[Rfam]
Nucleotides: 067
Stems, first nucleotide, its partner, number of pairs: 014034003018030002
Number, partner (000 for none) and nucleotide at each position: 001000u002000a003000u004000c005000u006000u007000u008000g009000c010000a011000c012000c013000c014034g015033u016032c017000u018030u019029a020000c021000a022000a023000u024000a025000g026000a027000u028000g029019u030018a031000u032016g033015a034014c035000a036000u037000a038000c039000a040000u041000a042000a043000a044000a045000a046000u047000c048000a049000u050000u051000a052000a053000a054000c055000a056000a057000a058000u059000a060000u061000u062000g063000g064000a065000a066000u067000g
S15-Flavobacteria ribosomal protein leader: a 67-nucleotide RNA sequence. Rfam classes the family as a cis-regulatory leader. The sequence is in the family's curated seed alignment. The family's consensus secondary structure is taken from published work. The family is grouped with related families in Rfam's "Ribosomal Protein S15 Leader clan".